[Rfam]
RNA sequence: AUUGUAUCAAGAGAGGUGGAGGGACUGGCCCUUUGAAACCUCGGCAACAGGUUCGCGUGCGAAUACUGUGCCACUUCCUGCGAGCAAUUUGCUCGAAAGAUAGAAU
Dot-bracket structure: (((.((((....(((((...(((.[.[[)))......)))))((((.(((.((.......)).)..))))))...(]].]((((((...))))))..))))).)))